[Rfam]
RNA sequence: AGCGCCGUACGCGACUGGCGAUAGGCGCGGCCACCCGGCCGGCGCUGACGUGGGAACCACCACUGGGGAGCGUGCCGCUGGCAAACCUGUCGAGCCUGUCAGGUCCGCCCAGUGUUGAGCCGUUCGCCUGGGCAGCCAAU
Number, nucleotide and partner (000 for none) at each position: 001a000002g000003c000004g078005c077006c000007g075008u074009a073010c072011g071012c070013g000014a000015c067016u066017g128018g127019c126020g125021a124022u000023a000024g000025g000026c000027g000028c000029g000030g000031c000032c000033a000034c000035c000036c000037g000038g000039c000040c000041g000042g000043c000044g000045c000046u000047g000048a000049c000050g063051u062052g061053g060054g000055a000056a000057c000058c000059a000060c053061c052062a051063c050064u000065g000066g016067g015068g000069a000070g012071c011072g010073u009074g008075c007076c000077g005078c004079u000080g000081g000082c000083a000084a000085a000086c000087c000088u000089g000090u000091c000092g000093a000094g000095c000096c000097u000098g000099u000100c000101a000102g000103g000104u000105c000106c000107g000108c000109c000110c000111a000112g000113u000114g000115u000116u000117g000118a000119g133120c132121c131122g000123u000124u021125c020126g019127c018128c017129u000130g000131g121132g120133c119134a000135g000136c000137c000138a000139a000140u000
Source information
This 140-nucleotide RNA sequence from Caenimonas koreensis belongs to the Rfam family "ZMP/ZTP riboswitch aptamer (pfl RNA motif)". Pairs were carried over by alignment from the consensus structure, which is taken from published work. The match comes from Rfam's covariance-model search (46 bits).